[Rfam]
RNA sequence: ACCUGCAUUCGAAAGUGAUCGUGGUCUGUGUGUGACCCGGUCAUUGAUAGUGCAGGAAGAGGAACCCUGAAAGCAUUCCCGUGUUUGGUGGGCUUGCUGCCAUCCCUCCCAAACCCUGUAGCUUUCAGACA
Numbered sequence: 001a002c003c004u005g006c007a008u009u010c011g012a013a014a015g016u017g018a019u020c021g022u023g024g025u026c027u028g029u030g031u032g033u034g035a036c037c038c039g040g041u042c043a044u045u046g047a048u049a050g051u052g053c054a055g056g057a058a059g060a061g062g063a064a065c066c067c068u069g070a071a072a073g074c075a076u077u078c079c080c081g082u083g084u085u086u087g088g089u090g091g092g093c094u095u096g097c098u099g100c101c102a103u104c105c106c107u108c109c110c111a112a113a114c115c116c117u118g119u120a121g122c123u124u125u126c127a128g129a130c131a
Stems, first nucleotide, its partner, number of pairs: 002056008014045008023037004066128001068127007083114005088108001090106003
The family of this 131-nucleotide RNA from Crypturellus soui is "Small nucleolar RNA SNORA71". Rfam's curators write: The members of this family belong to the H/ACA class of snoRNAs which bind a number of proteins (including dyskerin, Gar1p and Nop10p) to form snoRNP complexes. This class of snoRNAs are thought to guide the sites of modification of uridines to pseudouridines by forming direct base pairing interactions with substrate RNAs. This family includes U71 (SNORA71), ACA39 (SNORA39) and ACA60 (SNORA60). U71 and ACA60 are predicted to guide the pseudouridylation of U406 and U1004 in 18S rRNA respectively. There is currently no target RNA identified for ACA39. The literature on the family includes a 1997 paper in Genes Dev by Ganot et al., "The family of box ACA small nucleolar RNAs is defined by an evolutionarily conserved secondary structure and ubiquitous sequence elements essential for RNA accumulation". Rfam 15.1 lists 1,805 matches to the family in 606 species.